Overview:
The family of this 119-nucleotide RNA from Pseudorhodoplanes sinuspersici is "Rhizobiales sRNA Atu_C8". The family's RNA type in Rfam is small RNA. The family's consensus secondary structure was predicted with CMfinder. Lineage of the source: Bacteria > Pseudomonadati > Pseudomonadota > Hyphomicrobiales > Pseudorhodoplanes.

RNA sequence: UUUUAUUUCGUGGACGCUUCUCAUCGUAGGAAGGCGCAUCGCUGGGGGUGGUUGAAACCACCUAUGCCGGGCGAUGCGCUGUUCAGGGGGCCUCACGGGCCCUUUUUUCUUUUCCCGGA
Numbered sequence: 001u002u003u004u005a006u007u008u009c010g011u012g013g014a015c016g017c018u019u020c021u022c023a024u025c026g027u028a029g030g031a032a033g034g035c036g037c038a039u040c041g042c043u044g045g046g047g048g049u050g051g052u053u054g055a056a057a058c059c060a061c062c063u064a065u066g067c068c069g070g071g072c073g074a075u076g077c078g079c080u081g082u083u084c085a086g087g088g089g090g091c092c093u094c095a096c097g098g099g100c101c102c103u104u105u106u107u108u109c110u111u112u113u114c115c116c117g118g119a
Stems, first nucleotide, its partner, number of pairs: 007028001009026001029115004033080010046063006085104005091098002